[Rfam]
RNA sequence: GAUUGCUAUGACGACUCCAUAAAUUUCAAGCUCAACAGACCAGAUCACAGGUCUCUCUCUCGAGGGAUUUGUAUGUCGAUACCCCGCUGAACCGAGCAAUC
Numbered sequence: 001g002a003u004u005g006c007u008a009u010g011a012c013g014a015c016u017c018c019a020u021a022a023a024u025u026u027c028a029a030g031c032u033c034a035a036c037a038g039a040c041c042a043g044a045u046c047a048c049a050g051g052u053c054u055c056u057c058u059c060u061c062g063a064g065g066g067a068u069u070u071g072u073a074u075g076u077c078g079a080u081a082c083c084c085c086g087c088u089g090a091a092c093c094g095a096g097c098a099a100u101c
Stems, first nucleotide, its partner, number of pairs: 001101006
RNA: Small nucleolar RNA Z107/R87